[Rfam]
RNA sequence: UGCCUAAACCCACGGCUUUGCUGUGUGGCAUGGCGCAAAACCUUCGCAGUAGAAAGCUCCUAGUCAGAGCUCCUGCGAAGGUCGUAUGCCGAAAGGUAUACGGGUGGCGCGAGUCAUC
Number, nucleotide and partner (000 for none) at each position: 001u035002g034003c033004c032005u000006a000007a000008a000009c028010c027011c025012a024013c023014g022015g021016c020017u000018u000019u000020g016021c015022u014023g013024u012025g011026u000027g010028g009029c000030a000031u000032g004033g003034c002035g001036c000037a000038a000039a000040a000041c081042c080043u079044u078045c077046g076047c075048a074049g073050u000051a000052g000053a000054a000055a071056g070057c069058u068059c067060c000061u000062a000063g000064u000065c000066a000067g059068a058069g057070c056071u055072c000073c049074u048075g047076c046077g045078a044079a043080g042081g041082u000083c102084g101085u100086a099087u098088g097089c096090c095091g000092a000093a000094a000095g090096g089097u088098a087099u086100a085101c084102g083103g118104g117105u116106g115107g114108c113109g000110c000111g000112a000113g108114u107115c106116a105117u104118c103
Shown here is a 118-nucleotide sequence, a member of the family "LOOT RNA".